[Rfam]
RNA: Archaeal signal recognition particle RNA
Organism: Haloarchaeobius iranensis
RNA sequence: GAGUGGACUAGGUCGGGCAGUUAGGCCCUGCUCGAAACCCGCGGUAUGGUCUUUAGCGGGGACCGAAGCCCGUGGACGUCCGGUCAGACGCGGCCGGGCCCCGGGAGCCGACGUGGAAGCCUCGUCCGUCGGGGACGGCGGUCGCCGGGCGGUGCCCGCAGGGGCGCUCGCCCGUCGUUGGUCGGCGGCACUGGGUCAGGCACGGAAGUGAGCAGCCUACCGUCGGACACCCGUCGCUCGAUGGGUCGCGGGGUGGAGGAGGCCACCGGGAUUCCCCGGCCGUGAACGCCGGGCAACCUCGGGGUCCACCA
Dot-bracket structure: ..(((((((.((((((((((.......))))))....(((((.(.........).))))))))).....(((.((..(((((......((((((((((.(((((..(((..(.(....((((((((((((((((((((.((.((.((((((((((((....)))))).)))))).)).)..(((((((...(((((....(((....)))....)))))))))))).)..))))).))))))))...))))))).).)..)))..)))))....))))))))))....).))))..)).))))))))))..
Numbered sequence: 001g002a003g004u005g006g007a008c009u010a011g012g013u014c015g016g017g018c019a020g021u022u023a024g025g026c027c028c029u030g031c032u033c034g035a036a037a038c039c040c041g042c043g044g045u046a047u048g049g050u051c052u053u054u055a056g057c058g059g060g061g062a063c064c065g066a067a068g069c070c071c072g073u074g075g076a077c078g079u080c081c082g083g084u085c086a087g088a089c090g091c092g093g094c095c096g097g098g099c100c101c102c103g104g105g106a107g108c109c110g111a112c113g114u115g116g117a118a119g120c121c122u123c124g125u126c127c128g129u130c131g132g133g134g135a136c137g138g139c140g141g142u143c144g145c146c147g148g149g150c151g152g153u154g155c156c157c158g159c160a161g162g163g164g165c166g167c168u169c170g171c172c173c174g175u176c177g178u179u180g181g182u183c184g185g186c187g188g189c190a191c192u193g194g195g196u197c198a199g200g201c202a203c204g205g206a207a208g209u210g211a212g213c214a215g216c217c218u219a220c221c222g223u224c225g226g227a228c229a230c231c232c233g234u235c236g237c238u239c240g241a242u243g244g245g246u247c248g249c250g251g252g253g254u255g256g257a258g259g260a261g262g263c264c265a266c267c268g269g270g271a272u273u274c275c276c277c278g279g280c281c282g283u284g285a286a287c288g289c290c291g292g293g294c295a296a297c298c299u300c301g302g303g304g305u306c307c308a309c310c311a
Stems, first nucleotide, its partner, number of pairs: 003309007011064004015033006038060005044054001070302003074298002078294004082289001089284010100270005107263003112258001114256001119254007126244008134235005140228001141179001143177002146174006152167006182226007192219005201210003